[Rfam]
RNA sequence: GGCAGUUCUCGGGUGAUGAUGCAUCCCAGAAUCAGGCUCACUCCUCUCUGGUUCCCGGUGCAUCACCCAAGAACUGCA
Numbered sequence: 001g002g003c004a005g006u007u008c009u010c011g012g013g014u015g016a017u018g019a020u021g022c023a024u025c026c027c028a029g030a031a032u033c034a035g036g037c038u039c040a041c042u043c044c045u046c047u048c049u050g051g052u053u054c055c056c057g058g059u060g061c062a063u064c065a066c067c068c069a070a071g072a073a074c075u076g077c078a
Base pairs, nucleotide, nucleotide: 002077003076005074006073007072008071009070011068012067013066014065015064016063017062022060023059025058026057029054030053031052032051033050034049035048036047